RNA sequence: CCUUUGGAGAAUCAUAUCAAAUCAGAGUAGUCUAUCCUUGUGAUGACAAAAUGAGGUUCUAUGAAUAAGGAA
Numbered sequence: 001c002c003u004u005u006g007g008a009g010a011a012u013c014a015u016a017u018c019a020a021a022u023c024a025g026a027g028u029a030g031u032c033u034a035u036c037c038u039u040g041u042g043a044u045g046a047c048a049a050a051a052u053g054a055g056g057u058u059c060u061a062u063g064a065a066u067a068a069g070g071a072a
Base pairs, nucleotide, nucleotide: 001070002069003068004067009059010058011057012056013055022054023053024052030047031046032045035043036042
Dot-bracket structure: ((((....(((((........(((.....(((..((.....)).)))....)))))))).......))))..

The record is a 72-nucleotide RNA sequence, which matches "RAGATH-18 RNA" in Rfam.